A member of the RNA family "Small nucleolar RNA SNORA11" from Loxodonta africana, 129 nucleotides long. Gene Ontology terms of the family: nucleolus and RNA processing. The literature on the family includes a 2005 paper in Nucleic Acids Res by Gu et al., "A novel experimental approach for systematic identification of box H/ACA snoRNAs from eukaryotes". Rfam 15.1 lists 2,014 matches to the family in 202 species. The family's RNA type in Rfam is H/ACA-box small nucleolar RNA. A search with the family's covariance model found it, with a score of 118 bits. Rfam describes the family as follows. U107 (SNORA11) is a member of the H/ACA class of snoRNAs that guide the sites of modification of uridines to pseudouridines. This snoRNA was identified by RT-PCR from blood cells and its expression confirmed by Northern blot analysis. There is no predicted target for this guide snRNA. The base pairs follow the family's consensus structure, which was predicted with RNAalifold. The organism belongs to Loxodonta, within Eukaryota.

RNA sequence: GAGGUGUGCUCAGAGCAGGGAGCCUGAAGAAUGGCCCCUCUGUGUACAAAACACCCAACAGGAAUUCGGGUUCAUUGUGACAAGGGGCCCACAACUUGCGGCCUUCCGAUGAACAAAUGCCCUACACGU
Number, nucleotide and partner (000 for none) at each position: 001g000002a000003g055004g054005u053006g052007u051008g000009c000010u000011c000012a000013g045014a000015g043016c042017a041018g040019g039020g038021a000022g035023c034024c033025u000026g000027a000028a000029g000030a000031a000032u000033g024034g023035c022036c000037c000038c020039u019040c018041u017042g016043u015044g000045u013046a000047c000048a000049a000050a000051a007052c006053a005054c004055c003056c000057a000058a000059c000060a000061g000062g000063a000064a000065u000066u000067c000068g000069g122070g121071u000072u119073c000074a000075u000076u115077g114078u113079g000080a000081c111082a110083a000084g104085g103086g102087g000088c100089c000090c098091a097092c000093a000094a000095c000096u000097u091098g090099c000100g088101g000102c086103c085104u084105u000106c000107c000108g000109a000110u082111g081112a000113a078114c077115a076116a000117a000118u000119g072120c000121c070122c069123u000124a000125c000126a000127c000128g000129u000